[Rfam]
RNA sequence: ACCGGUCCUCGGUAGUGGCUUCCGGGCAUCAGCCCCGUGAGCUUCGAUCGAAGACCGGC
Numbered sequence: 001a002c003c004g005g006u007c008c009u010c011g012g013u014a015g016u017g018g019c020u021u022c023c024g025g026g027c028a029u030c031a032g033c034c035c036c037g038u039g040a041g042c043u044u045c046g047a048u049c050g051a052a053g054a055c056c057g058g059c
Base pairs, nucleotide, nucleotide: 002058003057004056005055006054007053009051010050011049012048013047017043018042019041020040021039023037024036025035026034
RNA: Actino-pnp RNA